RNA sequence: GGGAGAGAGAGCCUGGCUGCCGCGAUGGCCGGUCCGGAAACGGGUCGGCCACCACACGCGAGUGCUCGUUUUUCGGGCGCUCGCGCCCGCGAGGAAAGUCCCCCCACCCGUCGGGCGGGUGACCGGACGCAAGUCCGGAGCGGGAGACCGCUGGCUCUGGAACAGCAACGACACGUCUCGGCCCGAUCGAUGAUGCGUGCGAACCCAACCGCGAGGACGGGGAGUUAACCCGCAGAGAGCGCGUGGCCGCCUUGCGGCCACGGUGCGGCGGUUACCGCCGCACGGACGGCCGAGGACCGAUGGAACGGCGAAUCCUCACCGGUGCAAGUCCGCGUCGCAGGUAGCCCGACAGGACCGCUUUAGGCGGGCGGCGCGGACGCUCAGCCGAAUGCCGGGUCGAACAGAAGGGGGCUUACUCCUCUCACCC
Numbered sequence: 001g002g003g004a005g006a007g008a009g010a011g012c013c014u015g016g017c018u019g020c021c022g023c024g025a026u027g028g029c030c031g032g033u034c035c036g037g038a039a040a041c042g043g044g045u046c047g048g049c050c051a052c053c054a055c056a057c058g059c060g061a062g063u064g065c066u067c068g069u070u071u072u073u074c075g076g077g078c079g080c081u082c083g084c085g086c087c088c089g090c091g092a093g094g095a096a097a098g099u100c101c102c103c104c105c106a107c108c109c110g111u112c113g114g115g116c117g118g119g120u121g122a123c124c125g126g127a128c129g130c131a132a133g134u135c136c137g138g139a140g141c142g143g144g145a146g147a148c149c150g151c152u153g154g155c156u157c158u159g160g161a162a163c164a165g166c167a168a169c170g171a172c173a174c175g176u177c178u179c180g181g182c183c184c185g186a187u188c189g190a191u192g193a194u195g196c197g198u199g200c201g202a203a204c205c206c207a208a209c210c211g212c213g214a215g216g217a218c219g220g221g222g223a224g225u226u227a228a229c230c231c232g233c234a235g236a237g238a239g240c241g242c243g244u245g246g247c248c249g250c251c252u253u254g255c256g257g258c259c260a261c262g263g264u265g266c267g268g269c270g271g272u273u274a275c276c277g278c279c280g281c282a283c284g285g286a287c288g289g290c291c292g293a294g295g296a297c298c299g300a301u302g303g304a305a306c307g308g309c310g311a312a313u314c315c316u317c318a319c320c321g322g323u324g325c326a327a328g329u330c331c332g333c334g335u336c337g338c339a340g341g342u343a344g345c346c347c348g349a350c351a352g353g354a355c356c357g358c359u360u361u362a363g364g365c366g367g368g369c370g371g372c373g374c375g376g377a378c379g380c381u382c383a384g385c386c387g388a389a390u391g392c393c394g395g396g397u398c399g400a401a402c403a404g405a406a407g408g409g410g411g412c413u414u415a416c417u418c419c420u421c422u423c424a425c426c427c
Base pairs, nucleotide, nucleotide: 001427002426003425005423006422007421008420009419010417011416012396013395014394015393016392017391021091022090023089024088096414097413098412100411101410102409103408104407105324106323107322108321114347115346118320119319120318121317122316123138124137125136126135127134139152140151141150142149143148153315154314158311160309174299175298177294178293179292180291181290182289183288328378329377330376331375332374333373334372335371336370

The family of this 427-nucleotide sequence from Natronosalvus rutilus is "Archaeal RNase P".
The base pairs follow the family's consensus structure, which is taken from published work.
Rfam classes the family as a ribozyme.
The source organism's lineage runs through Archaea, Halobacteria, Halobacteriales, Natrialbaceae and Natronosalvus.